Annotation: A member of the RNA family "Singlet oxygen resistance RNA X" from Rubellimicrobium roseum, 84 nucleotides long. It scores 52 bits against the family's covariance model. The literature on the family includes a 2009 paper in Mol Microbiol by Berghoff et al., "Photooxidative stress-induced and abundant small RNAs in Rhodobacter sphaeroides". Gene Ontology term of the family: response to photooxidative stress.
[Rfam]
RNA sequence: CGCAGUCGAAGGUGACGAUGCCUAGCGCUUGUCAUCUUCACCUCCCUGUUGGACUUAGCCGGGCUCUUGAGCCCGGCUUUUUUU
Numbered sequence: 001c002g003c004a005g006u007c008g009a010a011g012g013u014g015a016c017g018a019u020g021c022c023u024a025g026c027g028c029u030u031g032u033c034a035u036c037u038u039c040a041c042c043u044c045c046c047u048g049u050u051g052g053a054c055u056u057a058g059c060c061g062g063g064c065u066c067u068u069g070a071g072c073c074c075g076g077c078u079u080u081u082u083u084u
Base pairs, nucleotide, nucleotide: 008039009038010037011036012035013034014033015032016031017030018029057078058077059076060075061074062073063072064071
Background
Rfam's curators write: SorX (RSs2461)like SorY is a singlet oxygen induced sRNA that counteracts oxidative stress by targeting mRNA for a transporter in Rhodobacter.